About this RNA:
Shown here is a 112-nucleotide sequence from Brevibacillus centrosporus, a member of the family "SAM riboswitch aptamer (S box leader)". The family has 457 seed sequences and 9,625 matches in Rfam 15.1.

RNA sequence: GCCUUAUCUAGAGCGGCGGAGGGACUGGCCCGAUGAAGCCCGGCAACCACUGUACCUUGUACAGACUGGUGCCAAUUCCUACAAGACAGGUAAAUGUCUUGGAAGAUGAGGA
Numbered sequence: 001g002c003c004u005u006a007u008c009u010a011g012a013g014c015g016g017c018g019g020a021g022g023g024a025c026u027g028g029c030c031c032g033a034u035g036a037a038g039c040c041c042g043g044c045a046a047c048c049a050c051u052g053u054a055c056c057u058u059g060u061a062c063a064g065a066c067u068g069g070u071g072c073c074a075a076u077u078c079c080u081a082c083a084a085g086a087c088a089g090g091u092a093a094a095u096g097u098c099u100u101g102g103a104a105g106a107u108g109a110g111g112a
Base pairs, nucleotide, nucleotide: 002111003110004109005108006107007106008105013041015040016039017038021031022030023029027079028078042073043072044071045070047069048068050064051063052062077104082101083100084099085098086097087096
The SAM riboswitch is found upstream of a number of genes which code for proteins involved in methionine or cysteine biosynthesis in Gram-positive bacteria. The source organism's lineage runs through Bacteria, Bacillati, Bacillota, Bacilli and Brevibacillus. The match comes from Rfam's covariance-model search (91 bits).